[Rfam]
RNA sequence: AAGUGUUAGAGCUUUUUAAGAAUUUGUCUAGGUUUCUGGUUUUCACCAGAAACUCUCUU
Numbered sequence: 001a002a003g004u005g006u007u008a009g010a011g012c013u014u015u016u017u018a019a020g021a022a023u024u025u026g027u028c029u030a031g032g033u034u035u036c037u038g039g040u041u042u043u044c045a046c047c048a049g050a051a052a053c054u055c056u057c058u059u
Stems, first nucleotide, its partner, number of pairs: 030056003033052008
The family of this 59-nucleotide RNA from Cebus imitator is "U7 small nuclear RNA". The literature on the family includes a 1994 paper in Nucleic Acids Res by Spycher et al., "3' end processing of mouse histone pre-mRNA: evidence for additional base-pairing between U7 snRNA and pre-mRNA". The organism belongs to Cebus, within Eukaryota. The base pairs follow the family's consensus structure, which was predicted with PFOLD. Animal histone pre-mRNAs are spliced by a different mechanism than nuclear pre-mRNAs and self-splicing introns. This processing involves the U7 snRNP, which contains only one RNA species: U7.